RNA sequence: CAAAGCAAGAAGAAGCGCCCGCUUCUCACCUGAUUGACAAAGACGUUGACAGGUUUCGACUUUUUCAAACACGUAUGUAGAAGUGUGGGCGCUAAUGAUUAGCACCCACGCUUUUUUUUGUGU
Numbered sequence: 001c002a003a004a005g006c007a008a009g010a011a012g013a014a015g016c017g018c019c020c021g022c023u024u025c026u027c028a029c030c031u032g033a034u035u036g037a038c039a040a041a042g043a044c045g046u047u048g049a050c051a052g053g054u055u056u057c058g059a060c061u062u063u064u065u066c067a068a069a070c071a072c073g074u075a076u077g078u079a080g081a082a083g084u085g086u087g088g089g090c091g092c093u094a095a096u097g098a099u100u101a102g103c104a105c106c107c108a109c110g111c112u113u114u115u116u117u118u119u120g121u122g123u
Base pairs, nucleotide, nucleotide: 011026012025013024014023015022016021028054029053030052034049035048036047037046038045084110085109086108087107088106089105091103092102093101